[Rfam]
RNA sequence: AGCCGGCACUAAGCAUUAGUGCCGGCUGGUAUGCUUAGUGCCGGCUGGUAUUACCAGCCGGCACUAAUGCUUAGUGCCGGCU
Number, nucleotide and partner (000 for none) at each position: 001a082002g081003c080004c079005g078006g077007c076008a000009c000010u073011a072012a071013g070014c069015a068016u067017u066018a065019g064020u000021g000022c000023c000024g059025g000026c057027u056028g055029g054030u053031a052032u000033g000034c000035u000036u000037a000038g000039u000040g000041c000042c000043g000044g000045c000046u000047g000048g000049u000050a000051u000052u031053a030054c029055c028056a027057g026058c000059c024060g000061g000062c000063a000064c019065u018066a017067a016068u015069g014070c013071u012072u011073a010074g000075u000076g007077c006078c005079g004080g003081c002082u001
This 82-nucleotide RNA from Panicum hallii belongs to the Rfam family "mir-252 microRNA precursor family".
The family is grouped with related families in Rfam's "mir-252 microRNA precursor family".
Rfam links the family to the GO terms miRNA-mediated post-transcriptional gene silencing and RISC complex.
The family's consensus secondary structure was predicted with RNAalifold.
A search with the family's covariance model found it, with a score of 47 bits.